Bacterial small signal recognition particle RNA: a 100-nucleotide sequence from [Clostridium] methylpentosum. Gene Ontology terms of the family: signal recognition particle, plasma membrane targeting and SRP-dependent cotranslational protein targeting to membrane, signal sequence recognition. A search with the family's covariance model found it, with a score of 60 bits. The organism belongs to [Clostridium] methylpentosum, within Bacteria. The signal recognition particle (SRP) is a universally conserved ribonucleoprotein involved in the co-translational targeting of proteins to membranes.
[Rfam]
RNA sequence: AGCCGGGCUCUGUGCGACAGGACUCCGUGAACCAUGUCAGGCGGGGAACCGAGCAGCAUUAAGCGGAUGGCUCUGUGCGCCGCGGAUUCACCUGACUGCC
Numbered sequence: 001a002g003c004c005g006g007g008c009u010c011u012g013u014g015c016g017a018c019a020g021g022a023c024u025c026c027g028u029g030a031a032c033c034a035u036g037u038c039a040g041g042c043g044g045g046g047a048a049c050c051g052a053g054c055a056g057c058a059u060u061a062a063g064c065g066g067a068u069g070g071c072u073c074u075g076u077g078c079g080c081c082g083c084g085g086a087u088u089c090a091c092c093u094g095a096c097u098g099c100c
Stems, first nucleotide, its partner, number of pairs: 004094004009086006015077001017076005024067005034059004042051003